[Rfam]
RNA: FMN riboswitch aptamer (RFN element)
Organism: Sebaldella termitidis
RNA sequence: UAUACUCUUCGGGGCAGGGUGCGAUUCCCUACCGGCGGUAAAGUCCGCAAGCUUAUUUUUUUUAUAAGCACGAACCGGUUAGAUUCCGGUACCGACAGUUAUAGUCUGGAUGAAAGAAGAUUUUU
Numbered sequence: 001u002a003u004a005c006u007c008u009u010c011g012g013g014g015c016a017g018g019g020u021g022c023g024a025u026u027c028c029c030u031a032c033c034g035g036c037g038g039u040a041a042a043g044u045c046c047g048c049a050a051g052c053u054u055a056u057u058u059u060u061u062u063u064a065u066a067a068g069c070a071c072g073a074a075c076c077g078g079u080u081a082g083a084u085u086c087c088g089g090u091a092c093c094g095a096c097a098g099u100u101a102u103a104g105u106c107u108g109g110a111u112g113a114a115a116g117a118a119g120a121u122u123u124u125u
Stems, first nucleotide, its partner, number of pairs: 004122001006120005017029003031105002033094002035048004043092002053068001074090005096108003